[Rfam]
RNA: Small nucleolar RNA SNORA81
RNA sequence: CCUUUUUUGCAUAAGCACUGUGCUUUAAUAUUGCAGAAACUAGGGCCAUAUAUUGAUUUUUGUAAUAAUCCUAGCAGAGUGCAUACAAGAAGAAAAGUAACUGCACUAGGUUGUGAAUACUGUCCAGUGUCUGUGUCUUAAGAUUUGGUGCAAUGUAU
Numbered sequence: 001c002c003u004u005u006u007u008u009g010c011a012u013a014a015g016c017a018c019u020g021u022g023c024u025u026u027a028a029u030a031u032u033g034c035a036g037a038a039a040c041u042a043g044g045g046c047c048a049u050a051u052a053u054u055g056a057u058u059u060u061u062g063u064a065a066u067a068a069u070c071c072u073a074g075c076a077g078a079g080u081g082c083a084u085a086c087a088a089g090a091a092g093a094a095a096a097g098u099a100a101c102u103g104c105a106c107u108a109g110g111u112u113g114u115g116a117a118u119a120c121u122g123u124c125c126a127g128u129g130u131c132u133g134u135g136u137c138u139u140a141a142g143a144u145u146u147g148g149u150g151c152a153a154u155g156u157a158u
Stems, first nucleotide, its partner, number of pairs: 018079002021076004027072001030069004036060002039057001041055003045051001102152011